RNA sequence: UCGUGUUACAAACCGGUGCUAAAGGGUCCUGCCCGAUGGCUACUGACAUGUGCCGUCGGGCAGAGACCGUUUAGCACCGGUUUGUAACACGAA
Numbered sequence: 001u002c003g004u005g006u007u008a009c010a011a012a013c014c015g016g017u018g019c020u021a022a023a024g025g026g027u028c029c030u031g032c033c034c035g036a037u038g039g040c041u042a043c044u045g046a047c048a049u050g051u052g053c054c055g056u057c058g059g060g061c062a063g064a065g066a067c068c069g070u071u072u073a074g075c076a077c078c079g080g081u082u083u084g085u086a087a088c089a090c091g092a093a
Base pairs, nucleotide, nucleotide: 003090004089005088006087007086008085009084010083011082012081013080014079015078016077017076018075019074020073021072022071023070025068026067027066030063033059034058035057036056037055044048

The family of this 93-nucleotide RNA sequence from Sorghum bicolor is "MIR5387 microRNA precursor family". The organism belongs to Sorghum, within Eukaryota. Pairs were carried over by alignment from the consensus structure, which was predicted with RNAalifold.